[Rfam]
RNA sequence: GUUCCCGGUGAUGCUUCAAUAUAAACCAUGCUAAUGCUGACACUUUUGUGAUUGAACUCUUACCAUACUUGCUGAGGGAACU
Numbered sequence: 001g002u003u004c005c006c007g008g009u010g011a012u013g014c015u016u017c018a019a020u021a022u023a024a025a026c027c028a029u030g031c032u033a034a035u036g037c038u039g040a041c042a043c044u045u046u047u048g049u050g051a052u053u054g055a056a057c058u059c060u061u062a063c064c065a066u067a068c069u070u071g072c073u074g075a076g077g078g079a080a081c082u
Stems, first nucleotide, its partner, number of pairs: 001081005